[Rfam]
RNA sequence: AGCUAUGUGGUAAGCACAUAGCGAACUAUUCUUUUGCCUUUUACUAAAGAAUACCGUGUGCUUGCUACUUAACUGUGGCAUACGCUUAUUUUUGGAGGGCUAAUCUUACUAGAUUAC
Dot-bracket structure: ..(((..(((((((((((........((((((((...........))))))))...)))))))))))........)))......................((((((....)))))).
A member of the RNA family "U5 spliceosomal RNA" from Manihot esculenta, 117 nucleotides long. A search with the family's covariance model found it, with a score of 80 bits. U5 RNA is a component of both types of known spliceosome. The precise function of this molecule is unknown, though it is known that the 5' loop is required for splice site selection and p220 binding, and that both the 3' stem-loop and the Sm site are important for Sm protein binding and cap methylation. Taxonomically the source falls in Manihot (Eukaryota, Streptophyta, Embryophyta, Euphyllophyta).